[Rfam]
RNA sequence: ACUCUGGAUGAUGAACCAAUCUACCAAAGCAUAGUUCACCUGAAAUCUUCGGAUUACUGAACGAAAACCUUGAUCCAUCUUUCACUAUUAUCUGAUC
Numbered sequence: 001a002c003u004c005u006g007g008a009u010g011a012u013g014a015a016c017c018a019a020u021c022u023a024c025c026a027a028a029g030c031a032u033a034g035u036u037c038a039c040c041u042g043a044a045a046u047c048u049u050c051g052g053a054u055u056a057c058u059g060a061a062c063g064a065a066a067a068c069c070u071u072g073a074u075c076c077a078u079c080u081u082u083c084a085c086u087a088u089u090a091u092c093u094g095a096u097c
Stems, first nucleotide, its partner, number of pairs: 006021002009018002034062005044055004
RNA: A. fumigatus snoRNA Afu_263